[Rfam]
RNA sequence: UGUGCAAGUGAUGAUAAACAGACAGGGACAUCAGCACUGUUUAAUGGGAUGAUGAUUUGUCAAUGGGAAUCUCUCUGAUGCACU
Dot-bracket structure: .(((((........................................................................))))).
Description: This 84-nucleotide sequence from Ipomoea nil belongs to the Rfam family "Small nucleolar RNA R44/J54/Z268 family". A search with the family's covariance model found it, with a score of 80 bits. NCBI's taxonomy places the organism under Eukaryota, Viridiplantae, Gunneridae, Solanales, Ipomoea. The base pairs follow the family's consensus structure, which was predicted with PFOLD.